[Rfam]
RNA sequence: GCAUCGGUUUAGCUCAACGGUUACUUCCACACAUUUCACGUUUCCACUCUAUGGGUCCGCGGGCUGAGGGUUCGACCAUGGGCGCUGUCCGGUGUUUUU
Numbered sequence: 001g002c003a004u005c006g007g008u009u010u011a012g013c014u015c016a017a018c019g020g021u022u023a024c025u026u027c028c029a030c031a032c033a034u035u036u037c038a039c040g041u042u043u044c045c046a047c048u049c050u051a052u053g054g055g056u057c058c059g060c061g062g063g064c065u066g067a068g069g070g071u072u073c074g075a076c077c078a079u080g081g082g083c084g085c086u087g088u089c090c091g092g093u094g095u096u097u098u099u
Base pairs, nucleotide, nucleotide: 002094003093004092005091006090007089012083013082014081015080017079019077020076026075027074029072